[Rfam]
RNA: Small nucleolar RNA SNORD2
Organism: Anguilla anguilla
RNA sequence: GAGUGAGAUGAUGCCCUACCAUCUUUCGGGACUGACAUGGAAUGGAGAAAUCUUUUUUUUAUUACUGAUCACUC
Numbered sequence: 001g002a003g004u005g006a007g008a009u010g011a012u013g014c015c016c017u018a019c020c021a022u023c024u025u026u027c028g029g030g031a032c033u034g035a036c037a038u039g040g041a042a043u044g045g046a047g048a049a050a051u052c053u054u055u056u057u058u059u060u061a062u063u064a065c066u067g068a069u070c071a072c073u074c
Base pairs, nucleotide, nucleotide: 001074002073003072004071005070006069